[Rfam]
RNA sequence: AGAUUUAUGUGUGACUGGCGCUGCAUGGGUAACCAUGAGGGAGCACGUAGAUGACAACGGCCGUACGCCUGGGCAGAGGUA
Numbered sequence: 001a002g003a004u005u006u007a008u009g010u011g012u013g014a015c016u017g018g019c020g021c022u023g024c025a026u027g028g029g030u031a032a033c034c035a036u037g038a039g040g041g042a043g044c045a046c047g048u049a050g051a052u053g054a055c056a057a058c059g060g061c062c063g064u065a066c067g068c069c070u071g072g073g074c075a076g077a078g079g080u081a
Base pairs, nucleotide, nucleotide: 003052004051005050006049007048008047009046010045011044012043015040016039017069018068019067020066025036026035027034028033058076060074061073062072
Dot-bracket structure: ..((((((((((..(([[[[....((((....))))..))..)))))))))).....(.(((...]]]]..))).).....